[Rfam]
RNA sequence: GUUGCAAAUUCAAGGCCACUUCAGAAAUGUGCAUGGCAUGGUCCUGUCAAAUUCCACUGAAUCUGCAAUUCUGCU
Numbered sequence: 001g002u003u004g005c006a007a008a009u010u011c012a013a014g015g016c017c018a019c020u021u022c023a024g025a026a027a028u029g030u031g032c033a034u035g036g037c038a039u040g041g042u043c044c045u046g047u048c049a050a051a052u053u054c055c056a057c058u059g060a061a062u063c064u065g066c067a068a069u070u071c072u073g074c075u
Base pairs, nucleotide, nucleotide: 014043015042016041017040022073023072024071025070026069027039028038029037048065049064051062052061053060054059

This 75-nucleotide RNA from Crocodylus porosus belongs to the Rfam family "Mammalian CPEB3 ribozyme". Gene Ontology term of the family: RNA nuclease activity. Lineage of the source: Eukaryota > Deuterostomia > Sauropsida > Sauria > Crocodylus. About the family: The mammalian CPEB3 ribozyme is a self cleaving RNA located in the second intron of the CPEB3 gene which belongs to a family of genes regulating messenger RNA polyadenylation. A search with the family's covariance model found it, with a score of 39 bits.